About this RNA:
Shown here is a 119-nucleotide RNA sequence from Sphingobacterium sp. SGL-16, a member of the family "Group II catalytic intron D1-D4-2". Its family is annotated with Group II intron splicing in the Gene Ontology. From the family's description: Group II introns are found in rRNA, tRNA and mRNA of organelles in fungi, plants and protists, and also in mRNA in bacteria. NCBI's taxonomy places the organism under Bacteria, Pseudomonadati, Sphingobacteriia, Sphingobacteriales, Sphingobacterium. For this family Rfam cites "The ins and outs of group II introns" (Bonen and Vogel, Trends Genet, 2001).
[Rfam]
RNA sequence: GAGGGUAGGCCCCUCGAAGUCGACGUUCAGGCGCAGGCUUCAAACCACCUUUAUGUUGCUGGGUUAAAGAGAUCUGGUGAGAAGCGAUAAAGGAAAAGGCAUAGUUAAAGAUGUCAGGU
Numbered sequence: 001g002a003g004g005g006u007a008g009g010c011c012c013c014u015c016g017a018a019g020u021c022g023a024c025g026u027u028c029a030g031g032c033g034c035a036g037g038c039u040u041c042a043a044a045c046c047a048c049c050u051u052u053a054u055g056u057u058g059c060u061g062g063g064u065u066a067a068a069g070a071g072a073u074c075u076g077g078u079g080a081g082a083a084g085c086g087a088u089a090a091a092g093g094a095a096a097a098g099g100c101a102u103a104g105u106u107a108a109a110g111a112u113g114u115c116a117g118g119u
Stems, first nucleotide, its partner, number of pairs: 001015005016041006024033003046118001048093002051090004056080001058078003062074004098115005